[Rfam]
RNA: bZIP non canonical Hac1/Xbp1 intron
RNA sequence: UGAGUCCUCCGACGUGACACAACAUCCUGCAGCGGUGUUGUGCGACCUGCAGUGUCCGUCGCUGGACUCG
Numbered sequence: 001u002g003a004g005u006c007c008u009c010c011g012a013c014g015u016g017a018c019a020c021a022a023c024a025u026c027c028u029g030c031a032g033c034g035g036u037g038u039u040g041u042g043c044g045a046c047c048u049g050c051a052g053u054g055u056c057c058g059u060c061g062c063u064g065g066a067c068u069c070g
Base pairs, nucleotide, nucleotide: 001070002069003068004067005066006065007064010061011060012059013058014057021039022038023037024036025035026034044056045055046054